[Rfam]
RNA sequence: AUGACAAUAAGGGGAGAGAAUGGGUUAUCUUAAUUGAAAGAAAGAUUGUGCCCAUCGCCGAAGGAGCAAACGACCAGUUCGUGAAUCUCUCAGGCAAAAUAGACUCUUAUUGGACG
Numbered sequence: 001a002u003g004a005c006a007a008u009a010a011g012g013g014g015a016g017a018g019a020a021u022g023g024g025u026u027a028u029c030u031u032a033a034u035u036g037a038a039a040g041a042a043a044g045a046u047u048g049u050g051c052c053c054a055u056c057g058c059c060g061a062a063g064g065a066g067c068a069a070a071c072g073a074c075c076a077g078u079u080c081g082u083g084a085a086u087c088u089c090u091c092a093g094g095c096a097a098a099a100u101a102g103a104c105u106c107u108u109a110u111u112g113g114a115c116g
Base pairs, nucleotide, nucleotide: 006111007110008109009108010107011106012105013104020055021054022053023052024051025050057095058094059093060091061090064089065088066087070082071081
Dot-bracket structure: .....((((((((......((((((........................)))))).(((((..(((...((.........))....))))).)))........)))))))).....